[Rfam]
RNA sequence: GUGACAGAAGAGAGUGAGCACACAUGGUGGUUUCUUGCAUGCUUUUUUCAAUCAGGGUUUCGUCAUCAUGCUUGAAGCUAUGUGUGCUUACUCUCUCUCUGUCAC
Dot-bracket structure: ((((((((.((((((((((((.((((((................................................)))))).))))))))))))..))))))))

Shown here is a 105-nucleotide RNA from Capsella rubella, a member of the family "mir-156 microRNA precursor family". This family represents the plant microRNA (miRNA) precursor mir-156. Rfam 15.1 lists 1,401 matches to the family in 221 species. Rfam links the family to the GO terms RISC complex and miRNA-mediated post-transcriptional gene silencing. The literature on the family includes a 2001 paper in Cell by Ambros, "microRNAs: tiny regulators with great potential".